[Rfam]
RNA sequence: GUGAGGCGCGCCUAGGGUUCCGCCGCGGUGAGCGGGCUGGUCCGAGAGACGCAGGUGCCCGCGUGCGGGCGCUCCACGGCGGGAUAAAAGCCCGGGAGAA
Numbered sequence: 001g002u003g004a005g006g007c008g009c010g011c012c013u014a015g016g017g018u019u020c021c022g023c024c025g026c027g028g029u030g031a032g033c034g035g036g037c038u039g040g041u042c043c044g045a046g047a048g049a050c051g052c053a054g055g056u057g058c059c060c061g062c063g064u065g066c067g068g069g070c071g072c073u074c075c076a077c078g079g080c081g082g083g084a085u086a087a088a089a090g091c092c093c094g095g096g097a098g099a100a
Stems, first nucleotide, its partner, number of pairs: 008052003012048001015043002020040002022037001023035004054073008075095001077098001081093003
RNA: Guanidine-I riboswitch aptamer